[Rfam]
Notes
Rfam assigns this 96-nucleotide sequence from Prosthecochloris aestuarii to the family "TPP riboswitch aptamer (THI element)". The base pairs follow the family's consensus structure, which is taken from published work. Rfam describes the family as follows. Vitamin B(1) in its active form thiamin pyrophosphate (TPP) is an essential coenzyme that is synthesised by coupling of pyrimidine and thiazole moieties in bacteria. The organism belongs to Prosthecochloris aestuarii, within Bacteria.

RNA sequence: UGUUUCACCUUGGGGUGCUGCACAAUGCGGCUGAGAAUAAACCCAUACAACUUGAUGCAGGUAAUACUGACGCAAGGAAAGAAGAUGAAACUGCUU
Numbered sequence: 001u002g003u004u005u006c007a008c009c010u011u012g013g014g015g016u017g018c019u020g021c022a023c024a025a026u027g028c029g030g031c032u033g034a035g036a037a038u039a040a041a042c043c044c045a046u047a048c049a050a051c052u053u054g055a056u057g058c059a060g061g062u063a064a065u066a067c068u069g070a071c072g073c074a075a076g077g078a079a080a081g082a083a084g085a086u087g088a089a090a091c092u093g094c095u096u
Base pairs, nucleotide, nucleotide: 006084009081010080011045012044013043014042016039017031018030019029020028021027051076052075053074054073058069059068060067